[Rfam]
Nucleotides: 137
Base pairs, nucleotide, nucleotide: 028059029058030057031056032055033054034044035043036042096122097121098120099119100118101117102116103115105113
Number, partner (000 for none) and nucleotide at each position: 001000a002000u003000g004000a005000a006000a007000u008000a009000u010000g011000a012000a013000u014000a015000u016000a017000a018000a019000c020000c021000g022000u023000a024000g025000a026000c027000a028059g029058u030057a031056g032055g033054u034044a035043c036042c037000c038000a039000a040000u041000g042036g043035g044034u045000u046000u047000a048000a049000a050000g051000a052000a053000a054033g055032c056031c057030u058029g059028c060000c061000g062000a063000g064000g065000u066000a067000a068000u069000u070000u071000u072000c073000u074000a075000u076000a077000g078000a079000u080000u081000u082000a083000a084000g085000g086000a087000a088000a089000u090000u091000a092000u093000u094000g095000a096122a097121c098120c099119u100118c101117u102116c103115u104000a105113u106000g107000u108000c109000u110000a111000c112000g113105g114000c115103a116102g117101a118100g119099a120098g121097g122096u123000u124000c125000u126000g127000u128000u129000a130000u131000u132000u133000u134000u135000a136000a137000c